A member of the RNA family "sroC RNA" from Trabulsiella odontotermitis, 152 nucleotides long. By type it is a small RNA. NCBI's taxonomy places the organism under Bacteria, Pseudomonadati, Gammaproteobacteria, Enterobacteriaceae, Trabulsiella.
Nucleotides: 152
Stems, first nucleotide, its partner, number of pairs: 018035004023029001036135001038133003041126002044123002047118002056102001059096002069093003073089005
Number, partner (000 for none) and nucleotide at each position: 001000a002000c003000u004000a005000a006000u007000u008000a009000a010000a011000a012000g013000a014000a015000c016000a017000g018035g019034g020033g021032c022000a023029g024000g025000a026000c027000a028000g029023c030000c031000u032021g033020c034019c035018c036135u037000c038133u039132c040131g041126a042125u043000u044123g045122c046000a047118a048117g049000g050000a051000a052000a053000c054000a055000c056102g057000g058000a059096c060095a061000g062000a063000c064000u065000a066000u067000a068000c069093g070092u071091u072000g073089a074088g075087u076086g077085g078000u079000c080000g081000u082000u083000c084000c085077c086076c087075a088074c089073u090000g091071a092070a093069c094000a095060u096059g097000a098000a099000a100000a101000a102056c103000a104000a105000u106000a107000c108000c109000c110000a111000c112000a113000a114000u115000c116000a117048u118047u119000c120000g121000c122045g123044c124000u125042g126041u127000a128000u129000c130000a131040c132039g133038a134000c135036g136000g137000c138000a139000a140000c141000u142000g143000a144000g145000u146000g147000a148000a149000u150000c151000c152000c

About the family: This family consists of a number of bacterial sroC RNA genes of around 160 bases in length. sroC is found in several Enterobacterial species. It base-pairs with GcvB. This interaction triggers the degradation of GcvB by RNase E, alleviating the GcvB-mediated mRNA repression of other amino acid-related transport and metabolic genes.